Source information:
Rfam assigns this 59-nucleotide RNA from Pseudomonas rhizosphaerae to the family "gabT RNA". The base pairs follow the family's consensus structure, which is taken from published work. The match comes from Rfam's covariance-model search (56 bits).
RNA sequence: GGCGGCCGGCGUCCGCAGCAGUCGAUCAUCGUAUGCUGCUGCGGGACUCACCGGCCGCU
Numbered sequence: 001g002g003c004g005g006c007c008g009g010c011g012u013c014c015g016c017a018g019c020a021g022u023c024g025a026u027c028a029u030c031g032u033a034u035g036c037u038g039c040u041g042c043g044g045g046a047c048u049c050a051c052c053g054g055c056c057g058c059u
Stems, first nucleotide, its partner, number of pairs: 001059006012045011023031002
Dot-bracket structure: ((((((.....(((((((((((((.....))...)))))))))))........))))))